[Rfam]
RNA sequence: AAAACUACCCAAACACAAGCUCUGACUUGAGUUGUUUAUGCAGUAAGUGCUAUUUGUUGGGGUAGUUUUG
Numbered sequence: 001a002a003a004a005c006u007a008c009c010c011a012a013a014c015a016c017a018a019g020c021u022c023u024g025a026c027u028u029g030a031g032u033u034g035u036u037u038a039u040g041c042a043g044u045a046a047g048u049g050c051u052a053u054u055u056g057u058u059g060g061g062g063u064a065g066u067u068u069u070g
Base pairs, nucleotide, nucleotide: 004066005065006064007063008062009061010060013057014056015055017053018051019050020049022047023046025044026043027042
Description:
A member of the RNA family "miR-430 microRNA precursor family" from Perca fluviatilis, 70 nucleotides long. The source organism's lineage runs through Eukaryota, Chordata, Craniata, Neoteleostei and Perca. The family is grouped with related families in Rfam's "mir-290 clan".